The family of this 221-nucleotide RNA from Aeribacillus pallidus is "T-box leader". It scores 141 bits against the family's covariance model.
RNA sequence: GCAAGAACGGUGAAAAGGAUCAGUAGUGGAUAAAGGCGUCUAGAGAGUUGACGGAAGGUGAAAGUCAAUCGUUGUUUAUUCACGAACUCCCCUUUGAGUUGCGGGUGUGAAAUGUAUUCCGGUACAGACUAAUGCCCGACGUGUUUCCACGUUACGGAACAGAGUGAGUGCAUUUGCGCUAAUUUGGGUGGUACCGCGGGAAAUUGUCUCUCGUCCCUUCG
Numbered sequence: 001g002c003a004a005g006a007a008c009g010g011u012g013a014a015a016a017g018g019a020u021c022a023g024u025a026g027u028g029g030a031u032a033a034a035g036g037c038g039u040c041u042a043g044a045g046a047g048u049u050g051a052c053g054g055a056a057g058g059u060g061a062a063a064g065u066c067a068a069u070c071g072u073u074g075u076u077u078a079u080u081c082a083c084g085a086a087c088u089c090c091c092c093u094u095u096g097a098g099u100u101g102c103g104g105g106u107g108u109g110a111a112a113u114g115u116a117u118u119c120c121g122g123u124a125c126a127g128a129c130u131a132a133u134g135c136c137c138g139a140c141g142u143g144u145u146u147c148c149a150c151g152u153u154a155c156g157g158a159a160c161a162g163a164g165u166g167a168g169u170g171c172a173u174u175u176g177c178g179c180u181a182a183u184u185u186g187g188g189u190g191g192u193a194c195c196g197c198g199g200g201a202a203a204u205u206g207u208c209u210c211u212c213g214u215c216c217c218u219u220c221g
Stems, first nucleotide, its partner, number of pairs: 007099002015094004026083006036072003047069006102138007140151003167180005186217003196214005
The family's consensus secondary structure is taken from published work.